RNA sequence: CUCUUAUCGAGAGUUGGCUGAGGGAUUUGGCCCUAUGACGCCCGGCAACCGGCCUUCCGCACAUUUGCGGAAACCUCCUAGAAGGUGUGAGGUACGGUGCUACAUCCAACAGGCUUAUUUAAGUCUGAGAGAUAAGAG
Numbered sequence: 001c002u003c004u005u006a007u008c009g010a011g012a013g014u015u016g017g018c019u020g021a022g023g024g025a026u027u028u029g030g031c032c033c034u035a036u037g038a039c040g041c042c043c044g045g046c047a048a049c050c051g052g053c054c055u056u057c058c059g060c061a062c063a064u065u066u067g068c069g070g071a072a073a074c075c076u077c078c079u080a081g082a083a084g085g086u087g088u089g090a091g092g093u094a095c096g097g098u099g100c101u102a103c104a105u106c107c108a109a110c111a112g113g114c115u116u117a118u119u120u121a122a123g124u125c126u127g128a129g130a131g132a133u134a135a136g137a138g
Base pairs, nucleotide, nucleotide: 001138002137003136004135005134006133007132008131013043016042017041018040022033023032024031027109028108029107030106044101045100046099047098049097050096052093053092054091055090105130110127111126112125113124114123115122
RNA: SAM riboswitch aptamer (S box leader)